[Rfam]
RNA sequence: CUUUGUGUUCUUCCACGGCUUUCUUGAACUGCAUCAUCAUCUCAUCUAUUUCUCAGAUUUAGAUGCUGCAGUUCAAUAAAGCUGUGGGAAGGUACAACGA
Numbered sequence: 001c002u003u004u005g006u007g008u009u010c011u012u013c014c015a016c017g018g019c020u021u022u023c024u025u026g027a028a029c030u031g032c033a034u035c036a037u038c039a040u041c042u043c044a045u046c047u048a049u050u051u052c053u054c055a056g057a058u059u060u061a062g063a064u065g066c067u068g069c070a071g072u073u074c075a076a077u078a079a080a081g082c083u084g085u086g087g088g089a090a091g092g093u094a095c096a097a098c099g100a
Stems, first nucleotide, its partner, number of pairs: 003097005013087003017083006024076004029071005

Rfam assigns this 100-nucleotide RNA from Daucus carota to the family "MIR396 microRNA precursor family". Rfam 15.1 lists 744 matches to the family in 207 species. The organism belongs to Daucus carota, within Eukaryota. The literature on the family includes a 2004 paper in Mol Cell by Jones-Rhoades and Bartel, "Computational identification of plant microRNAs and their targets, including a stress-induced miRNA".